[Rfam]
RNA: Bacterial large subunit ribosomal RNA, nucleotides 608 to 1200
RNA sequence: GAGUUAUAGUCACUGGUAUGGCGAAUAGCCACAGCGAAAGCGAGUCUGAAGUGGGCGAAUUAUCAGUGUAUAUAGACCCGAACCUGGGUGAUCUAACCAUGGCCAGGAUGAAGCUUGGGUAACACCAAGUGGAGGUCCGCACCGACCGAUGUUGAAAAAUCGGCGGAUGAGCUGUGGUUAGGGGUGAAAUGCCAAUCGAACCCAGAGCUAGCUGGUUCUCCCCGAAAUGUGUUGAGGCGCAGCGGUAAGUGAUAAUUGCUGGGGGUAAAGCACUGUUUCGGUGCGGGCGGCCUCAAGCUGUACCAAAUCGAGACAAACUCAGAAUACCAGCAACAAUCUUACUAGUGAGACGGUGGGGGAUAAGCUUCAUCGUCAAGAGGGAAACAGCCCAGACCGCCAGCUAAGGUCCCCAAAUCAAAGUUAAGUGGCAAAGGAGGUGGGAGUGCACAGACAACCAGGAGGUUUGCCUAGAAGCAGCCAUCCUUGAAAGAGUGCGUAAUAGCUCACUGGUCAAGCGCUCCUGCGCCGAAAAUGAACGGGACUAAACUUUGUACCGAAGCUGCGGACUUGUAGCGAUACAAGUGGUAGGGGAG
Numbered sequence: 001g002a003g004u005u006a007u008a009g010u011c012a013c014u015g016g017u018a019u020g021g022c023g024a025a026u027a028g029c030c031a032c033a034g035c036g037a038a039a040g041c042g043a044g045u046c047u048g049a050a051g052u053g054g055g056c057g058a059a060u061u062a063u064c065a066g067u068g069u070a071u072a073u074a075g076a077c078c079c080g081a082a083c084c085u086g087g088g089u090g091a092u093c094u095a096a097c098c099a100u101g102g103c104c105a106g107g108a109u110g111a112a113g114c115u116u117g118g119g120u121a122a123c124a125c126c127a128a129g130u131g132g133a134g135g136u137c138c139g140c141a142c143c144g145a146c147c148g149a150u151g152u153u154g155a156a157a158a159a160u161c162g163g164c165g166g167a168u169g170a171g172c173u174g175u176g177g178u179u180a181g182g183g184g185u186g187a188a189a190u191g192c193c194a195a196u197c198g199a200a201c202c203c204a205g206a207g208c209u210a211g212c213u214g215g216u217u218c219u220c221c222c223c224g225a226a227a228u229g230u231g232u233u234g235a236g237g238c239g240c241a242g243c244g245g246u247a248a249g250u251g252a253u254a255a256u257u258g259c260u261g262g263g264g265g266u267a268a269a270g271c272a273c274u275g276u277u278u279c280g281g282u283g284c285g286g287g288c289g290g291c292c293u294c295a296a297g298c299u300g301u302a303c304c305a306a307a308u309c310g311a312g313a314c315a316a317a318c319u320c321a322g323a324a325u326a327c328c329a330g331c332a333a334c335a336a337u338c339u340u341a342c343u344a345g346u347g348a349g350a351c352g353g354u355g356g357g358g359g360a361u362a363a364g365c366u367u368c369a370u371c372g373u374c375a376a377g378a379g380g381g382a383a384a385c386a387g388c389c390c391a392g393a394c395c396g397c398c399a400g401c402u403a404a405g406g407u408c409c410c411c412a413a414a415u416c417a418a419a420g421u422u423a424a425g426u427g428g429c430a431a432a433g434g435a436g437g438u439g440g441g442a443g444u445g446c447a448c449a450g451a452c453a454a455c456c457a458g459g460a461g462g463u464u465u466g467c468c469u470a471g472a473a474g475c476a477g478c479c480a481u482c483c484u485u486g487a488a489a490g491a492g493u494g495c496g497u498a499a500u501a502g503c504u505c506a507c508u509g510g511u512c513a514a515g516c517g518c519u520c521c522u523g524c525g526c527c528g529a530a531a532a533u534g535a536a537c538g539g540g541a542c543u544a545a546a547c548u549u550u551g552u553a554c555c556g557a558a559g560c561u562g563c564g565g566a567c568u569u570g571u572a573g574c575g576a577u578a579c580a581a582g583u584g585g586u587a588g589g590g591g592a593g
Stems, first nucleotide, its partner, number of pairs: 005074004011068007020030003034041002044056004077215002080212001084205006093181011104169001106138004113130006142166003146163005183193003218593006228241005243345001244343006253336001256333007269319002274315003278311004285304002287301005349374010379390003394565004399561003405555003414552001416551006433527002437524010454511005460484003466478002485489001490505001494503002566583007